Rfam assigns this 141-nucleotide sequence from Galbula dea to the family "Small Cajal body specific RNA 11". Rfam classes the family as a small Cajal body RNA. The organism belongs to Galbula, within Eukaryota. Gene Ontology terms of the family: Cajal body, nucleolus and RNA processing.

[Rfam]
RNA sequence: GUGUCCUGACCUCCUCUUGUCUGUUCCCCUCACCAGAUCUGUGGUGCUGGGGUCUGGGGAUGGACGCAGAUCAACUUACCUCUCAUGUUAGGAGGGCUACCAAAGAGUAUGUGCAAGCCCUUAAAGGCAAGAGAGGACACU
Numbered sequence: 001g002u003g004u005c006c007u008g009a010c011c012u013c014c015u016c017u018u019g020u021c022u023g024u025u026c027c028c029c030u031c032a033c034c035a036g037a038u039c040u041g042u043g044g045u046g047c048u049g050g051g052g053u054c055u056g057g058g059g060a061u062g063g064a065c066g067c068a069g070a071u072c073a074a075c076u077u078a079c080c081u082c083u084c085a086u087g088u089u090a091g092g093a094g095g096g097c098u099a100c101c102a103a104a105g106a107g108u109a110u111g112u113g114c115a116a117g118c119c120c121u122u123a124a125a126g127g128c129a130a131g132a133g134a135g136g137a138c139a140c141u
Base pairs, nucleotide, nucleotide: 002066003065004064005063006062010059011058026052027051028049031046032045033044079136080135081134082133083132084131088126089125092122093121094120095119096118097117098116100113101111102110103108
Rfam's curators write: scaRNAs are a specific class of small nuclear RNAs which localise to the Cajal bodies and guide the modification of RNA polymerase II transcribed spliceosomal RNAs U1, U2, U4, U5 and U12. ACA57 belongs to the H/ACA box class of guide RNAs as it has the predicted hairpin-hinge-hairpin-tail structure, conserved H/ACA-box motifs and is found associated with GAR1. ACA57 is predicted to guide the pseudouridylation of the U5 spliceosomal RNA at position U43.